[Rfam]
RNA: mir-1788 microRNA precursor family
RNA sequence: UAGCGCUCGAGGCUUGUUUUAAGUUGCCUGCGAUCGCUUUAAAGACUCAGGCAGCUAAAGCAAGUCUGGGACGCCA
Numbered sequence: 001u002a003g004c005g006c007u008c009g010a011g012g013c014u015u016g017u018u019u020u021a022a023g024u025u026g027c028c029u030g031c032g033a034u035c036g037c038u039u040u041a042a043a044g045a046c047u048c049a050g051g052c053a054g055c056u057a058a059a060g061c062a063a064g065u066c067u068g069g070g071a072c073g074c075c076a
Base pairs, nucleotide, nucleotide: 003074004073007070008069010067011066012065013064014063015062016061017060018059019058020057022056023055024054025053026052027051028050029049030048032046